[Rfam]
RNA sequence: GAGGCACCCUUCUGAGGCAAGACUUGCUUCAGUGGGACUUUGGUGCUCAUUGAGUCUACCCCUGAGUGUGUCCCU
Numbered sequence: 001g002a003g004g005c006a007c008c009c010u011u012c013u014g015a016g017g018c019a020a021g022a023c024u025u026g027c028u029u030c031a032g033u034g035g036g037a038c039u040u041u042g043g044u045g046c047u048c049a050u051u052g053a054g055u056c057u058a059c060c061c062c063u064g065a066g067u068g069u070g071u072c073c074c075u
Stems, first nucleotide, its partner, number of pairs: 001074001003072005009066003014062001016060002019057001021056003029053008037044002
Rfam assigns this 75-nucleotide RNA from Myotis myotis to the family "mir-9229 microRNA precursor family".
The family has 7 seed sequences and 27,225 matches in Rfam 15.1.
The match comes from Rfam's covariance-model search (74 bits).
NCBI's taxonomy places the organism under Eukaryota, Metazoa, Tetrapoda, Yangochiroptera, Myotis.